[Rfam]
RNA: U1 spliceosomal RNA
Organism: Alligator mississippiensis
RNA sequence: CUACCACAAGGCAGGGGAGAUGCCAUGAUCACCAAUGAGGUUCUGCCAGGGUGAUGUCUGUACAUUGCAAUCUGGGCAGGCUGACCCUUUUGAGCUUCCCCAAAUGUAGGAGACUUGACUGCACAAUUUUGUGACAGUGGGGGACUGCUUUCUUGCAUUCUCCCU
Numbered sequence: 001c002u003a004c005c006a007c008a009a010g011g012c013a014g015g016g017g018a019g020a021u022g023c024c025a026u027g028a029u030c031a032c033c034a035a036u037g038a039g040g041u042u043c044u045g046c047c048a049g050g051g052u053g054a055u056g057u058c059u060g061u062a063c064a065u066u067g068c069a070a071u072c073u074g075g076g077c078a079g080g081c082u083g084a085c086c087c088u089u090u091u092g093a094g095c096u097u098c099c100c101c102a103a104a105u106g107u108a109g110g111a112g113a114c115u116u117g118a119c120u121g122c123a124c125a126a127u128u129u130u131g132u133g134a135c136a137g138u139g140g141g142g143g144a145c146u147g148c149u150u151u152c153u154u155g156c157a158u159u160c161u162c163c164c165u
Stems, first nucleotide, its partner, number of pairs: 011122004015047002018044003022041003026037001048089004053085001056081002059078003063074001091117003095112002098109001139164006146157003